[Rfam]
This 84-nucleotide RNA from Bombyx mori belongs to the Rfam family "mir-2807 microRNA precursor family". The match comes from Rfam's covariance-model search (58 bits). The organism belongs to Bombyx, within Eukaryota. The family's consensus secondary structure was predicted with RNAalifold.

RNA sequence: UUUACUCAAAUUUGUAUGCAGUUGGAGCAGCACCCCUAGCGGCAAACCUAGGCAAACGUUCCAACUCCAUAUAAAAUUGAGUUU
Numbered sequence: 001u002u003u004a005c006u007c008a009a010a011u012u013u014g015u016a017u018g019c020a021g022u023u024g025g026a027g028c029a030g031c032a033c034c035c036c037u038a039g040c041g042g043c044a045a046a047c048c049u050a051g052g053c054a055a056a057c058g059u060u061c062c063a064a065c066u067c068c069a070u071a072u073a074a075a076a077u078u079g080a081g082u083u084u
Base pairs, nucleotide, nucleotide: 008078009077011075012074013073014072015071016070018068020066021065022064023063024062025061026060027059028058034052035051039047